[Rfam]
Overview
Shown here is a 73-nucleotide RNA sequence from Nakaseomyces glabratus, a member of the family "tRNA".
RNA sequence: GAAACUAUAAUUCAAUUGGUUAGAAUAGUAUUUUGAUAAGGUACCAAUAUAGGUUCGAUUCCUGUUAGUUUCA
Numbered sequence: 001g002a003a004a005c006u007a008u009a010a011u012u013c014a015a016u017u018g019g020u021u022a023g024a025a026u027a028g029u030a031u032u033u034u035g036a037u038a039a040g041g042u043a044c045c046a047a048u049a050u051a052g053g054u055u056c057g058a059u060u061c062c063u064g065u066u067a068g069u070u071u072c073a
Base pairs, nucleotide, nucleotide: 001072002071003070004069005068006067007066010026011025012024013023028044029043030042031041032040049065050064051063052062053061